[Rfam]
RNA sequence: GAGCAAGUUUCCAGCAUGGUUGGGUUUGCCGUAGCCCUGCCCAUUCCUGUAGAACUUGCCAGAUCAGCACUGAGACGGUUUGAGGCCUCCUGUUGUCCCUCCAGCAGAAGGUUAUAGAACUCUCGGACACUU
Numbered sequence: 001g002a003g004c005a006a007g008u009u010u011c012c013a014g015c016a017u018g019g020u021u022g023g024g025u026u027u028g029c030c031g032u033a034g035c036c037c038u039g040c041c042c043a044u045u046c047c048u049g050u051a052g053a054a055c056u057u058g059c060c061a062g063a064u065c066a067g068c069a070c071u072g073a074g075a076c077g078g079u080u081u082g083a084g085g086c087c088u089c090c091u092g093u094u095g096u097c098c099c100u101c102c103a104g105c106a107g108a109a110g111g112u113u114a115u116a117g118a119a120c121u122c123u124c125g126g127a128c129a130c131u132u
Stems, first nucleotide, its partner, number of pairs: 003059006017043003022037005071125005086111003090107002093104003
This 132-nucleotide RNA sequence belongs to the Rfam family "Small nucleolar RNA SNORA9". It is one of the family's seed sequences.